[Rfam]
RNA sequence: AGGUGCUAGGGGCAAACUUGUCGAAAGACGAGGACGCAAAGCCACCGGUCUACGGGAUCACUCCUACGACAGCGGGGUUGCCACA
Numbered sequence: 001a002g003g004u005g006c007u008a009g010g011g012g013c014a015a016a017c018u019u020g021u022c023g024a025a026a027g028a029c030g031a032g033g034a035c036g037c038a039a040a041g042c043c044a045c046c047g048g049u050c051u052a053c054g055g056g057a058u059c060a061c062u063c064c065u066a067c068g069a070c071a072g073c074g075g076g077g078u079u080g081c082c083a084c085a
Stems, first nucleotide, its partner, number of pairs: 012037002017032006040079004045075003048070003055064003
A member of the RNA family "c-di-GMP-I riboswitch aptamer" from a Steroidobacteraceae bacterium, 85 nucleotides long.